[Rfam]
RNA: U11 spliceosomal RNA
RNA sequence: AAAAAGGGUCGGUUGGCUAAAUAUGCCACUCUUGCCUGCGUGGCGAGUGCUGUAUGGCUAUCAAGACAUAUGGCCGACAUAAUUUCUGGAACUCUAUAGGGUUGGCUCCUUGGCCGACCCUCCA
Number, nucleotide and partner (000 for none) at each position: 001a000002a000003a000004a000005a000006g000007g000008g078009u077010c076011g075012g074013u000014u028015g027016g026017c025018u000019a000020a000021a000022u000023a000024u000025g017026c016027c015028a014029c049030u000031c047032u046033u045034g044035c043036c042037u000038g000039c000040g000041u000042g036043g035044c034045g033046a032047g031048u000049g029050c073051u072052g071053u070054a069055u068056g067057g000058c000059u000060a000061u000062c000063a000064a000065g000066a000067c056068a055069u054070a053071u052072g051073g050074c012075c011076g010077a009078c008079a000080u000081a000082a000083u000084u000085u000086c000087u000088g000089g000090a000091a000092c000093u000094c000095u000096a000097u000098a121099g120100g119101g118102u117103u116104g115105g114106c000107u113108c112109c000110u000111u000112g108113g107114c105115c104116g103117a102118c101119c100120c099121u098122c000123c000124a000